[Rfam]
RNA: Glycine riboswitch aptamer
Nucleotides: 118
Base pairs, nucleotide, nucleotide: 007112009110010109011108012107013106019030020029021028032098033097034096035094036093039092041090045085046084
Number, partner (000 for none) and nucleotide at each position: 001000g002000g003000a004000g005000a006000a007112a008000c009110c010109u011108c012107u013106g014000g015000a016000g017000a018000a019030c020029u021028c022000u023000u024000a025000a026000a027000u028021g029020a030019g031000u032098g033097c034096c035094g036093a037000c038000g039092g040000u041090g042000c043000a044000a045085g046084g047000c048000c049000a050000u051000c052000g053000g054000g055000u056000g057000c058000a059000a060000g061000g062000c063000g064000c065000u066000g067000c068000c069000a070000c071000g072000c073000c074000g075000c076000c077000c078000c079000g080000a081000u082000u083000g084046c085045c086000g087000a088000a089000u090041c091000u092039c093036u094035c095000a096034g097033g098032c099000a100000a101000a102000a103000g104000g105000a106013c107012a108011g109010a110009g111000a112007u113000g114000c115000g116000g117000u118000u